Rfam assigns this 507-nucleotide part of an RNA from Entamoeba invadens to the family "Eukaryotic large subunit ribosomal RNA".

RNA sequence: CCACCUGAAUAUUCCCUUAGGAAGGUUGAAGUGAGAAAGUAGUGACGAUUGGUAAAGAUAAUGAUUGGAUGUAAUGGAGAGCUUGACUUUUCAACAUUUUAACAAACUAUGAAUAGUCGAGAUAUCCUAAACGAUAAACAUUUAUUAGGAGUGAGCAUAUGCGGACUUCAAAUCGGCCAAGUCUGGUAAGCAGGACUGGCGAUGCGGGAUGAACCGAACAUACAGAUAAAGUAUCCAAGUCUUGCAUGAGGAGAACCAUAAAAGGUGUUCAUUCAUAUUGACAAUAGGACGAUGGCCAUGGAAGUUGGAAAUCGCUAAGGAGUGUGUAACAACUCACCUAUCGAAUGGAUGAGCCCUGAAAAUGGAAGGUAUUAUAAUGAGAGAGAGUGAUACUGUAUCCUUGUGGAGGCUGAGGCACACGAGGAGUAAGGAAAUGCAUGGUGUCAAGAAUACGUGAGUGAUAAAGGUAGAGAAGUAAUUUCUAUUGAAACAGACUUGAGUACAGAU
Numbered sequence: 001c002c003a004c005c006u007g008a009a010u011a012u013u014c015c016c017u018u019a020g021g022a023a024g025g026u027u028g029a030a031g032u033g034a035g036a037a038a039g040u041a042g043u044g045a046c047g048a049u050u051g052g053u054a055a056a057g058a059u060a061a062u063g064a065u066u067g068g069a070u071g072u073a074a075u076g077g078a079g080a081g082c083u084u085g086a087c088u089u090u091u092c093a094a095c096a097u098u099u100u101a102a103c104a105a106a107c108u109a110u111g112a113a114u115a116g117u118c119g120a121g122a123u124a125u126c127c128u129a130a131a132c133g134a135u136a137a138a139c140a141u142u143u144a145u146u147a148g149g150a151g152u153g154a155g156c157a158u159a160u161g162c163g164g165a166c167u168u169c170a171a172a173u174c175g176g177c178c179a180a181g182u183c184u185g186g187u188a189a190g191c192a193g194g195a196c197u198g199g200c201g202a203u204g205c206g207g208g209a210u211g212a213a214c215c216g217a218a219c220a221u222a223c224a225g226a227u228a229a230a231g232u233a234u235c236c237a238a239g240u241c242u243u244g245c246a247u248g249a250g251g252a253g254a255a256c257c258a259u260a261a262a263a264g265g266u267g268u269u270c271a272u273u274c275a276u277a278u279u280g281a282c283a284a285u286a287g288g289a290c291g292a293u294g295g296c297c298a299u300g301g302a303a304g305u306u307g308g309a310a311a312u313c314g315c316u317a318a319g320g321a322g323u324g325u326g327u328a329a330c331a332a333c334u335c336a337c338c339u340a341u342c343g344a345a346u347g348g349a350u351g352a353g354c355c356c357u358g359a360a361a362a363u364g365g366a367a368g369g370u371a372u373u374a375u376a377a378u379g380a381g382a383g384a385g386a387g388u389g390a391u392a393c394u395g396u397a398u399c400c401u402u403g404u405g406g407a408g409g410c411u412g413a414g415g416c417a418c419a420c421g422a423g424g425a426g427u428a429a430g431g432a433a434a435u436g437c438a439u440g441g442u443g444u445c446a447a448g449a450a451u452a453c454g455u456g457a458g459u460g461a462u463a464a465a466g467g468u469a470g471a472g473a474a475g476u477a478a479u480u481u482c483u484a485u486u487g488a489a490a491c492a493g494a495c496u497u498g499a500g501u502a503c504a505g506a507u
Base pairs, nucleotide, nucleotide: 001441002440003439004431005430006429012023013022014021015020027170028169029168030167031166032165043122046119047118048117049116050115055110056108057107062104063103065101067099068098069097070096071095075093076092077091078090079089081087125150126149127148128147129146130145176200177199178198179197182194183193184192185191205216206215207214220398221397222396223395224394230388232386241383245379246378263357264356265355267354268353269352270351271350272349273348274347275346276345284341285340286339287338288337290314291313292312296308297307315319320335324333325332399424400423401422402421403420404419405418406416442502444499445498446497447496448495451492454491455490466486467485472481473480474479